Shown here is a 164-nucleotide RNA from Roseburia sp. CAG:303, a member of the family "Clostridiales-1 RNA". It is annotated as a small RNA. Taxonomically the source falls in Roseburia (Bacteria, Bacillota, Clostridia, Lachnospiraceae).
RNA sequence: AAAUGCCAGGGUCAGAAAGUCUAAGACCACAUGAGCUUGCUCAUAAGUGGGUGAAAGACUUUAGGACCCGCCCUGAUAUGAGCAUAAAAGUGGGCAAGCCAACGAUAUGCGAAUAUUGGGCAGGAUUGUGGAAGUGCAUAGCACGAAACAAUCCGUAGGCAUCG
Numbered sequence: 001a002a003a004u005g006c007c008a009g010g011g012u013c014a015g016a017a018a019g020u021c022u023a024a025g026a027c028c029a030c031a032u033g034a035g036c037u038u039g040c041u042c043a044u045a046a047g048u049g050g051g052u053g054a055a056a057g058a059c060u061u062u063a064g065g066a067c068c069c070g071c072c073c074u075g076a077u078a079u080g081a082g083c084a085u086a087a088a089a090g091u092g093g094g095c096a097a098g099c100c101a102a103c104g105a106u107a108u109g110c111g112a113a114u115a116u117u118g119g120g121c122a123g124g125a126u127u128g129u130g131g132a133a134g135u136g137c138a139u140a141g142c143a144c145g146a147a148a149c150a151a152u153c154c155g156u157a158g159g160c161a162u163c164g
Stems, first nucleotide, its partner, number of pairs: 003162005010068004016062007027050004031044005072120008082110004090103002092100002123154007134144004

Annotation:
It scores 116 bits against the family's covariance model.